[Rfam]
RNA sequence: CGGGCGGUAUCUGAUCUGGAGCUGCACCUGCUUAAUCAUCCAUUGAAAAAAGAAAAGUCUGCCUUGAUCAACGAAGACAGGGACGGAGGA
Dot-bracket structure: .(((((((.((.......))))))).))..............................((((((((.((......))))))).)))....
pan motif: a 90-nucleotide RNA from Planomicrobium sp. YIM 101495. A search with the family's covariance model found it, with a score of 53 bits. The base pairs follow the family's consensus structure, which is taken from published work. NCBI's taxonomy places the organism under Bacteria, Bacillati, Bacillota, Caryophanaceae, Planomicrobium.